[Rfam]
RNA: Small nucleolar RNA Z155
RNA sequence: CAUUGAGGUGAUGAUAUCUUUUUCGGAAAUUUCCUUAUGUCGACUCGAAGAAAUCAGACUACAAUUAUCUGAUCAAUG
Numbered sequence: 001c002a003u004u005g006a007g008g009u010g011a012u013g014a015u016a017u018c019u020u021u022u023u024c025g026g027a028a029a030u031u032u033c034c035u036u037a038u039g040u041c042g043a044c045u046c047g048a049a050g051a052a053a054u055c056a057g058a059c060u061a062c063a064a065u066u067a068u069c070u071g072a073u074c075a076a077u078g
Stems, first nucleotide, its partner, number of pairs: 001078006